Overview
A member of the RNA family "Alphaproteobacterial sRNA BjrC1505" from Labrenzia sp. 011, 138 nucleotides long. Taxonomically the source falls in Labrenzia (Bacteria, Pseudomonadati, Alphaproteobacteria, Stappiaceae). A reference for the family is Madhugiri et al. (2012), "Small RNAs of the Bradyrhizobium/Rhodopseudomonas lineage and their analysis", RNA Biol.
RNA sequence: UAACUUAUUUACCUCUUGUUAAUCUUUCCAAAUUAUAAAUUUAUACAUCCAGUCAUCUGGAUUUGAGUGGCUCCUGUCCACUCUGUUUGACGCCUCCCUGUUAAUGACUCAGAGCCGCCUUCCCGCGGCUCUUUUUUU
Numbered sequence: 001u002a003a004c005u006u007a008u009u010u011a012c013c014u015c016u017u018g019u020u021a022a023u024c025u026u027u028c029c030a031a032a033u034u035a036u037a038a039a040u041u042u043a044u045a046c047a048u049c050c051a052g053u054c055a056u057c058u059g060g061a062u063u064u065g066a067g068u069g070g071c072u073c074c075u076g077u078c079c080a081c082u083c084u085g086u087u088u089g090a091c092g093c094c095u096c097c098c099u100g101u102u103a104a105u106g107a108c109u110c111a112g113a114g115c116c117g118c119c120u121u122c123c124c125g126c127g128g129c130u131c132u133u134u135u136u137u138u
Stems, first nucleotide, its partner, number of pairs: 001043003020035004025030001048061004065083006089102004111132008